[Rfam]
Shown here is a 102-nucleotide sequence from Miscanthus lutarioriparius, a member of the family "Small nucleolar RNA snoR99". By type it is an H/ACA-box small nucleolar RNA.

RNA sequence: GUGCCUGUGGGAUGAACAGGUCCCAAUAGUUACUACCAUUUUGCUCACUUUGUCAGCUAUUACCCACAUAUUAUUAGCUGAUCAUUUAAGAAUGGGAAAUGU
Numbered sequence: 001g002u003g004c005c006u007g008u009g010g011g012a013u014g015a016a017c018a019g020g021u022c023c024c025a026a027u028a029g030u031u032a033c034u035a036c037c038a039u040u041u042u043g044c045u046c047a048c049u050u051u052g053u054c055a056g057c058u059a060u061u062a063c064c065c066a067c068a069u070a071u072u073a074u075u076a077g078c079u080g081a082u083c084a085u086u087u088a089a090g091a092a093u094g095g096g097a098a099a100u101g102u
Stems, first nucleotide, its partner, number of pairs: 036095005052082008